[Rfam]
RNA sequence: UAAUUAAAUAUAAAAUUACCGUAGACAGUAGGUGCGAGUGAUCGCUUAAUUUCCUGCCGAGGUGUAUUGAAUCUAUAUAUUACGUACAUGAAUAGUGUAUGUUUGUGGAUAUAAAUACAAUGCCUCCAUGGUCUACAUGGAGGCAUUUUUAUUUGUCUCU
Numbered sequence: 001u002a003a004u005u006a007a008a009u010a011u012a013a014a015a016u017u018a019c020c021g022u023a024g025a026c027a028g029u030a031g032g033u034g035c036g037a038g039u040g041a042u043c044g045c046u047u048a049a050u051u052u053c054c055u056g057c058c059g060a061g062g063u064g065u066a067u068u069g070a071a072u073c074u075a076u077a078u079a080u081u082a083c084g085u086a087c088a089u090g091a092a093u094a095g096u097g098u099a100u101g102u103u104u105g106u107g108g109a110u111a112u113a114a115a116u117a118c119a120a121u122g123c124c125u126c127c128a129u130g131g132u133c134u135a136c137a138u139g140g141a142g143g144c145a146u147u148u149u150u151a152u153u154u155g156u157c158u159c160u
Base pairs, nucleotide, nucleotide: 028057029056030055031054032053034045035044036043121145122144123143124142125141126140127139128138129137130136
This 160-nucleotide RNA sequence from Salirhabdus euzebyi belongs to the Rfam family "Ribosomal protein L10 leader". Gene Ontology term of the family: regulation of gene expression. Pairs were carried over by alignment from the consensus structure, which was predicted with CMfinder. The source organism's lineage runs through Bacteria, Bacillati, Bacillota, Bacillaceae and Salirhabdus. About the family: This family is a putative r-protein leader autoregulatory structure found in B. subtilis and other low-GC Gram-positive bacteria. It is located in the 5' untranslated regions of mRNAs encoding ribosomal proteins L10 and L12 (rplJ-rplL). A Rho-independent transcription terminator structure that is probably involved in regulation is included at the 3' end. By type it is a cis-regulatory leader.